[Rfam]
RNA sequence: CAUGAAGACGAUCCUCAUUCUCGUAGGAAUGCGCAUGGGCAAGGCGGUGUAACCGCCGGGCGACGUCCUCCCAUGCGCUAAACGCAGGCUCCCUCCCGGGGGCCUUUUUUAUUGCCCACGA
Numbered sequence: 001c002a003u004g005a006a007g008a009c010g011a012u013c014c015u016c017a018u019u020c021u022c023g024u025a026g027g028a029a030u031g032c033g034c035a036u037g038g039g040c041a042a043g044g045c046g047g048u049g050u051a052a053c054c055g056c057c058g059g060g061c062g063a064c065g066u067c068c069u070c071c072c073a074u075g076c077g078c079u080a081a082a083c084g085c086a087g088g089c090u091c092c093c094u095c096c097c098g099g100g101g102g103c104c105u106u107u108u109u110u111a112u113u114g115c116c117c118a119c120g121a
Base pairs, nucleotide, nucleotide: 026117027116031078032077033076034075035074036073037072038071039070043057044056045055046054047053060067084106086105087104088103089102090101091100092099
Shown here is a 121-nucleotide RNA from Kumtagia ephedrae, a member of the family "Rhizobiales sRNA Atu_C8".
On this family, see Wilms et al., RNA Biol 2012: "Deep sequencing uncovers numerous small RNAs on all four replicons of the plant pathogen Agrobacterium tumefaciens".
It scores 91 bits against the family's covariance model.
The family's consensus secondary structure was predicted with CMfinder.
The organism belongs to Kumtagia, within Bacteria.